[Rfam]
The family of this 172-nucleotide RNA from Paenibacillus pini is "c-di-AMP riboswitch aptamer (ydaO/yuaA leader)". It scores 89 bits against the family's covariance model. The source organism's lineage runs through Bacteria, Bacillati, Caryophanales, Paenibacillaceae and Paenibacillus pini.
RNA sequence: AUGAAUGAUAUGCUGAAUUCCCGAACAGGGAAACGGGGGAACCAAUCGGUAAAGAACGAAUCGGUUUCUUACUUACCACGGGGUGAAUCACCAGACGGACAACCGUUUGGGGUAGGGCUUCUCUCUAGUCCGAAUCCGACAGCUAACCUCGUAAGCAAACAAAGGAGAACAU
Numbered sequence: 001a002u003g004a005a006u007g008a009u010a011u012g013c014u015g016a017a018u019u020c021c022c023g024a025a026c027a028g029g030g031a032a033a034c035g036g037g038g039g040a041a042c043c044a045a046u047c048g049g050u051a052a053a054g055a056a057c058g059a060a061u062c063g064g065u066u067u068c069u070u071a072c073u074u075a076c077c078a079c080g081g082g083g084u085g086a087a088u089c090a091c092c093a094g095a096c097g098g099a100c101a102a103c104c105g106u107u108u109g110g111g112g113u114a115g116g117g118c119u120u121c122u123c124u125c126u127a128g129u130c131c132g133a134a135u136c137c138g139a140c141a142g143c144u145a146a147c148c149u150c151g152u153a154a155g156c157a158a159a160c161a162a163a164g165g166a167g168a169a170c171a172u
Stems, first nucleotide, its partner, number of pairs: 011157004018032003033152006043080001081137003089112001091110007115131004